[Rfam]
Nucleotides: 100
Base pairs, nucleotide, nucleotide: 001100002099003098004097008091009090010089011088012087013086015041016040017039018038023035024034025033026032027031043085044084045083046082047081048080049079050078
Number, partner (000 for none) and nucleotide at each position: 001100c002099u003098g004097a005000a006000g007000g008091g009090c010089g011088c012087g013086u014000c015041c016040g017039g018038g019000u020000c021000a022000a023035u024034u025033g026032c027031g028000g029000c030000u031027u032026g033025c034024a035023a036000c037000a038018c039017c040016c041015g042000a043085u044084c045083u046082c047081u048080c049079u050078c051000a052000a053000u054000g055000u056000g057000c058000c059000g060000c061000c062000a063000u064000c065000g066000a067000u068000g069000g070000c071000a072000c073000u074000c075000g076000a077000a078050g079049a080048g081047g082046g083045a084044g085043a086013g087012c088011g089010c090009g091008u092000g093000a094000c095000c096000g097004u098003c099002a100001g